[Rfam]
RNA sequence: UUGCCUGUCAGGCUCUGGUUAUAUCCCAAGUCUCAGUUGGACCUGGAUAUAACCAGAGCCUGACUAUACA
Numbered sequence: 001u002u003g004c005c006u007g008u009c010a011g012g013c014u015c016u017g018g019u020u021a022u023a024u025c026c027c028a029a030g031u032c033u034c035a036g037u038u039g040g041a042c043c044u045g046g047a048u049a050u051a052a053c054c055a056g057a058g059c060c061u062g063a064c065u066a067u068a069c070a
Base pairs, nucleotide, nucleotide: 007064008063009062011060012059013058014057016055017054018053019052020051021050022049023048026040027039028038029037
Dot-bracket structure: ......(((.((((.((((((((..((((.......)))).......)))))))).)))).)))......